[Rfam]
RNA sequence: GCAUCGAUGAUCUGACCUGGUGGUUGGGCGUGACUUCAAAUCACGUGGCGCCUAACGGCGCAGGGGUUCGAUUCCUCCUUCGGUGC
Dot-bracket structure: (((((((.(..((((((....))))))((((((.......)))))).(((((....))))).((((.......))))).)))))))
About this RNA
Rfam assigns this 86-nucleotide RNA sequence from Cystoisospora suis to the family "Selenocysteine transfer RNA". Taxonomically the source falls in Cystoisospora (Eukaryota, Apicomplexa, Conoidasida, Eucoccidiorida). Rfam links the family to the GO term triplet codon-amino acid adaptor activity. A search with the family's covariance model found it, with a score of 73 bits. The base pairs follow the family's consensus structure, which is taken from published work.